This 348-nucleotide RNA sequence from Jannaschia aquimarina belongs to the Rfam family "Bacterial RNase P class A". The family's consensus secondary structure is taken from published work. Taxonomically the source falls in Jannaschia (Bacteria, Pseudomonadota, Alphaproteobacteria, Rhodobacterales). It scores 274 bits against the family's covariance model.

[Rfam]
RNA sequence: CGGGGGGCCGGGGCGGCCGCGGGAAACCGAGGAAAGUCCGGACUCCACGAAGCGACGGUGCCGGGUAACGCCCGGGCGGGGCAACCCGACGGAAAGCGCCACAGAGAACAGUCCGCCCUCGCAUGCGGGGGCAAGGGUGAAACGGUGGGGUAAGAGCCCACCGGGGGGACGGCAACGUCCCCCGCAUGGCAAGCCCCACCGGGAGCAAUGCCGAAUAGGGACCGCGGAUCGGGUGCUUCGCCCGGCGGUCCGGGUUGGCAGCUUCAGGCCCGCCGCGAGGCGGUGCCGAGAUGAAUGGUCGCCGCCCCGAAGGGGGAACAGAAUCCGGCUUACACGGCCCCCCGCACC
Dot-bracket structure: ((((((((((((((((((.(((....)))....[[[.[[[[[((((.....[.[.((((((((((.....)))))(((((....)))).)((...(((((............(((((((((....)))))))..)).......((((((.......))))))(((((((((....)))))))).)..)))..)))))))))))))...((((......((((((.....(((((.].].))))).)))))).....))))......(..(((((....)))))..)..........)))))))....................]]]]]]]].).))))))))))....